[Rfam]
RNA sequence: CUCUGGAGAGUGCUGGUAAGUUAAGCAGCCACCAAAGGGGAAAGCCAAUUAGGUAAACUUUCAGGUGAAAGGACAGAG
Dot-bracket structure: (((((......((((..........)))).(((.(..(((...((.......))...))))..))).......)))))

Rfam assigns this 78-nucleotide sequence from Neobacillus thermocopriae to the family "Glycine riboswitch aptamer". Taxonomically the source falls in Neobacillus (Bacteria, Bacillati, Bacillota, Bacillaceae).